[Rfam]
RNA: DUF805b RNA
RNA sequence: AAGGCGGCAGCCGAAAAGCCAUAACAGAGUAGGCA
Numbered sequence: 001a002a003g004g005c006g007g008c009a010g011c012c013g014a015a016a017a018g019c020c021a022u023a024a025c026a027g028a029g030u031a032g033g034c035a
Stems, first nucleotide, its partner, number of pairs: 003020003010034003